[Rfam]
Nucleotides: 139
Base pairs, nucleotide, nucleotide: 002060003059004058005057018047019046020045021044022043023042024041025040026039027038028037074131075130076129077128078127079125086116087115088114089113090112
Number, partner (000 for none) and nucleotide at each position: 001000u002060g003059c004058a005057g006000c007000u008000g009000c010000g011000u012000c013000a014000a015000a016000u017000u018047c019046a020045g021044u022043c023042c024041u025040c026039a027038g028037c029000c030000a031000g032000c033000c034000c035000g036000u037028g038027c039026u040025g041024g042023g043022g044021a045020c046019u047018g048000g049000c050000c051000a052000a053000a054000c055000a056000g057005c058004u059003g060002c061000c062000a063000c064000a065000g066000c067000a068000a069000g070000a071000u072000c073000u074131g075130u076129a077128g078127c079125u080000u081000c082000u083000g084000a085000g086116c087115c088114u089113c090112g091000u092000u093000g094000u095000c096000c097000c098000c099000u100000c101000u102000c103000c104000u105000g106000g107000g108000a109000c110000c111000c112090u113089g114088g115087g116086g117000a118000c119000a120000a121000a122000u123000a124000a125079a126000u127078g128077c129076u130075a131074c132000a133000g134000a135000c136000a137000g138000c139000a